The record is an 86-nucleotide RNA sequence from Spinacia oleracea, which matches "Small nucleolar RNA R160" in Rfam.
[Rfam]
RNA sequence: AGCAAAAUGAUGAAAUCAGUUGAGCUGAAUUUCUUUUAUGUGGAAUUAUUUCAUCUGAAAUAUACCUUCAAAGUUCUCUGAUUGCU
Numbered sequence: 001a002g003c004a005a006a007a008u009g010a011u012g013a014a015a016u017c018a019g020u021u022g023a024g025c026u027g028a029a030u031u032u033c034u035u036u037u038a039u040g041u042g043g044a045a046u047u048a049u050u051u052c053a054u055c056u057g058a059a060a061u062a063u064a065c066c067u068u069c070a071a072a073g074u075u076c077u078c079u080g081a082u083u084g085c086u
Stems, first nucleotide, its partner, number of pairs: 001086005
It scores 62 bits against the family's covariance model.
Its family is annotated with nucleolus and RNA processing in the Gene Ontology.
snoR160 is a C/D box small nucleolar RNA, which acts as a methylation guide for 25S ribosomal RNA in plants. snoR160 has been alternatively named snoZ270 in rice.